[Rfam]
RNA sequence: UGUCAUAAACCCGUAGAUCCGAUCUUGUGGUAAAAUCUGACAACGCAAGCUCGUUUCUAUGGGUCUCUGCCUU
Numbered sequence: 001u002g003u004c005a006u007a008a009a010c011c012c013g014u015a016g017a018u019c020c021g022a023u024c025u026u027g028u029g030g031u032a033a034a035a036u037c038u039g040a041c042a043a044c045g046c047a048a049g050c051u052c053g054u055u056u057c058u059a060u061g062g063g064u065c066u067c068u069g070c071c072u073u
Stems, first nucleotide, its partner, number of pairs: 002071001004069002007066001010063003015058003020053003024049006

mir-10 microRNA precursor family: a 73-nucleotide sequence from Albula goreensis. A search with the family's covariance model found it, with a score of 68 bits.